[Rfam]
RNA sequence: GGAUAAGGAGGUGAUGAAGCUCACCCUGCUUUUAUGCAAAACCGCCGCGCCUUGCGGCUGAUGGCUUCUAGGCCGAC
Numbered sequence: 001g002g003a004u005a006a007g008g009a010g011g012u013g014a015u016g017a018a019g020c021u022c023a024c025c026c027u028g029c030u031u032u033u034a035u036g037c038a039a040a041a042c043c044g045c046c047g048c049g050c051c052u053u054g055c056g057g058c059u060g061a062u063g064g065c066u067u068c069u070a071g072g073c074c075g076a077c
Stems, first nucleotide, its partner, number of pairs: 010025004016068006044058004
Rfam assigns this 77-nucleotide RNA to the family "Fluoride riboswitch aptamer (crcB RNA motif)".
The family's consensus secondary structure is taken from published work.